[Rfam]
RNA: SAM/SAH riboswitch aptamer
Organism: Rubellimicrobium rubrum
RNA sequence: CCCUCGUCACAACGGCUUCCUGGCGUGACGGGCGACCUUAAUGGAGCA
Numbered sequence: 001c002c003c004u005c006g007u008c009a010c011a012a013c014g015g016c017u018u019c020c021u022g023g024c025g026u027g028a029c030g031g032g033c034g035a036c037c038u039u040a041a042u043g044g045a046g047c048a
Stems, first nucleotide, its partner, number of pairs: 004031007013022002015047003019044002